[Rfam]
This 172-nucleotide RNA from Streptomyces genisteinicus belongs to the Rfam family "c-di-AMP riboswitch aptamer (ydaO/yuaA leader)".
This family represents a conserved RNA structure found upstream of the ydaO and yuaA genes in Bacillus subtilis and related genes in other bacteria.
The source organism's lineage runs through Bacteria, Actinomycetota, Kitasatosporales, Streptomycetaceae and Streptomyces.
RNA sequence: GCUCGAAAAGCGCCGAAGGCAGGAGCGGGGGACCCAGGUAGGUGCCGGCCCCGGCCGUCCGAGGAGGACGCCGGUCACGGCUAGGGGUGGAGCCGCGCGCAAGGACGCGCGGCCGGGCAACUUUCCGGCCCGAACCCGACAGCUCACCUCGCAGGCGUCGGUGAGGAGUACG
Numbered sequence: 001g002c003u004c005g006a007a008a009a010g011c012g013c014c015g016a017a018g019g020c021a022g023g024a025g026c027g028g029g030g031g032a033c034c035c036a037g038g039u040a041g042g043u044g045c046c047g048g049c050c051c052c053g054g055c056c057g058u059c060c061g062a063g064g065a066g067g068a069c070g071c072c073g074g075u076c077a078c079g080g081c082u083a084g085g086g087g088u089g090g091a092g093c094c095g096c097g098c099g100c101a102a103g104g105a106c107g108c109g110c111g112g113c114c115g116g117g118c119a120a121c122u123u124u125c126c127g128g129c130c131c132g133a134a135c136c137c138g139a140c141a142g143c144u145c146a147c148c149u150c151g152c153a154g155g156c157g158u159c160g161g162u163g164a165g166g167a168g169u170a171c172g
Base pairs, nucleotide, nucleotide: 011157012156013155014154025152026151027150028149029148030147035084085137086136087135093112094111095110096109097108098107115131116130117129118128